[Rfam]
RNA: Small nucleolar RNA Z279/snoR105/snoR108
Organism: Lupinus angustifolius
RNA sequence: GGGAUAUGAUGAGUGGUUAAAUGUCGCAAUAAAAAAUGCGAGUUGGGUGUUCGCCCAAGCCUGGUUACGACAACUGGGCACCCUCUUAUUAUUCCAAUCUGAUCCC
Numbered sequence: 001g002g003g004a005u006a007u008g009a010u011g012a013g014u015g016g017u018u019a020a021a022u023g024u025c026g027c028a029a030u031a032a033a034a035a036a037u038g039c040g041a042g043u044u045g046g047g048u049g050u051u052c053g054c055c056c057a058a059g060c061c062u063g064g065u066u067a068c069g070a071c072a073a074c075u076g077g078g079c080a081c082c083c084u085c086u087u088a089u090u091a092u093u094c095c096a097a098u099c100u101g102a103u104c105c106c
Stems, first nucleotide, its partner, number of pairs: 001106004014096003024041004045083007062076004